This 96-nucleotide RNA sequence from Affinibrenneria salicis belongs to the Rfam family "Glycine riboswitch aptamer". A search with the family's covariance model found it, with a score of 57 bits.
[Rfam]
RNA sequence: UCUACGCCAACUGGAGAGAGGUUGCCUGGCGCAAUCCACCGAAGGGGCAAGCAGCCUGCUGCUAAACUCUCAGGUAAACAGGACAGAGGGAGGGGC
Numbered sequence: 001u002c003u004a005c006g007c008c009a010a011c012u013g014g015a016g017a018g019a020g021g022u023u024g025c026c027u028g029g030c031g032c033a034a035u036c037c038a039c040c041g042a043a044g045g046g047g048c049a050a051g052c053a054g055c056c057u058g059c060u061g062c063u064a065a066a067c068u069c070u071c072a073g074g075u076a077a078a079c080a081g082g083a084c085a086g087a088g089g090g091a092g093g094g095g096c
Base pairs, nucleotide, nucleotide: 007090008089011086012085013084020036021035022034023033038075039074040073041071042070045069046068047067051062052061